This 79-nucleotide RNA from Strongylocentrotus purpuratus belongs to the Rfam family "Mammalian CPEB3 ribozyme".
RNA sequence: UUCAUACCCCAGUGGGUCAUAGUAGGAGCGUCCACGUGCAGUCCUUGUCAGCUUCUUCCAAGAGCCUGCAAAUCCUGCA
Number, nucleotide and partner (000 for none) at each position: 001u000002u000003c000004a000005u000006a000007c000008c000009c000010c000011a000012g000013u000014g044015g043016g042017u041018c000019a000020u000021a000022g078023u077024a076025g075026g074027a073028g039029c038030g037031u000032c000033c000034a000035c000036g000037u030038g029039c028040a000041g017042u016043c015044c014045u000046u000047g000048u000049c068050a067051g066052c000053u064054u063055c062056u000057u000058c000059c000060a000061a000062g055063a054064g053065c000066c051067u050068g049069c000070a000071a000072a000073u027074c026075c025076u024077g023078c022079a000
Background
A search with the family's covariance model found it, with a score of 38 bits. The organism belongs to Strongylocentrotus, within Eukaryota.